This 108-nucleotide RNA from Rhodospirillum centenum belongs to the Rfam family "rpsB sRNA". A search with the family's covariance model found it, with a score of 48 bits. The source organism's lineage runs through Bacteria, Alphaproteobacteria, Rhodospirillales, Rhodospirillaceae and Rhodospirillum centenum.
RNA sequence: CACACGCGGGCUUGCGGUGCGUGCGCUUGCAUGGCGUCGCCCCGAUCCGGUGUCCGGACACUGUCUCCGGACGUCGCCCGCGGAGGAUCAACCGGAAAAGGAAGAUUU
Numbered sequence: 001c002a003c004a005c006g007c008g009g010g011c012u013u014g015c016g017g018u019g020c021g022u023g024c025g026c027u028u029g030c031a032u033g034g035c036g037u038c039g040c041c042c043c044g045a046u047c048c049g050g051u052g053u054c055c056g057g058a059c060a061c062u063g064u065c066u067c068c069g070g071a072c073g074u075c076g077c078c079c080g081c082g083g084a085g086g087a088u089c090a091a092c093c094g095g096a097a098a099a100g101g102a103a104g105a106u107u108u
Stems, first nucleotide, its partner, number of pairs: 001085001003083001005082007016043002024036002027034001052072006
Pairs were carried over by alignment from the consensus structure, which is taken from published work.
On this family, see Meyer et al., BMC Genomics 2009: "Identification of candidate structured RNAs in the marine organism 'Candidatus Pelagibacter ubique'".